[Rfam]
Rfam assigns this 84-nucleotide RNA to the family "c-di-GMP-II-GAG riboswitch aptamer". The family is grouped with related families in Rfam's "c-di-GMP_II riboswitch clan". The sequence is in the family's curated seed alignment. Pairs were carried over by alignment from the consensus structure, which is taken from published work.
RNA sequence: UAGUGGGGUAGAGGCUAAGAACUUCGUCCUGUAUGUGGGCACCUGGGACGAAGGAAGCCAAUGGUGCGACCGACUACCAAGGUC
Numbered sequence: 001u002a003g004u005g006g007g008g009u010a011g012a013g014g015c016u017a018a019g020a021a022c023u024u025c026g027u028c029c030u031g032u033a034u035g036u037g038g039g040c041a042c043c044u045g046g047g048a049c050g051a052a053g054g055a056a057g058c059c060a061a062u063g064g065u066g067c068g069a070c071c072g073a074c075u076a077c078c079a080a081g082g083u084c
Stems, first nucleotide, its partner, number of pairs: 002083001004081001007078005013059003022053008037071002039067005